RNA sequence: CCGGCGGGACGACCCGCCGGAGGACAAACCGUCCGCGCCGCCCGUUCACGGGGACGACCCCG
Numbered sequence: 001c002c003g004g005c006g007g008g009a010c011g012a013c014c015c016g017c018c019g020g021a022g023g024a025c026a027a028a029c030c031g032u033c034c035g036c037g038c039c040g041c042c043c044g045u046u047c048a049c050g051g052g053g054a055c056g057a058c059c060c061c062g
Stems, first nucleotide, its partner, number of pairs: 001020008049062005
This 62-nucleotide sequence from Humidesulfovibrio mexicanus belongs to the Rfam family "Guanidine-II riboswitch aptamer (mini-ykkC)". The base pairs follow the family's consensus structure, which is taken from published work. The literature on the family includes a 2017 paper in Cell Chem Biol by Huang et al., "The Structure of the Guanidine-II Riboswitch". From the family's description: Simpler in structure and has fewer highly conserved nucleotide positions than the ykkC-yxkD leader. Despite this each of its two stem-loop structures directly bind free guanidine. Therefore, mini-ykkC RNA motif represents a distinct class of guanidine-sensing RNAs. Its crystal structure was also determined. Lineage of the source: Bacteria > Thermodesulfobacteriota > Desulfovibrionia > Desulfovibrionales > Humidesulfovibrio.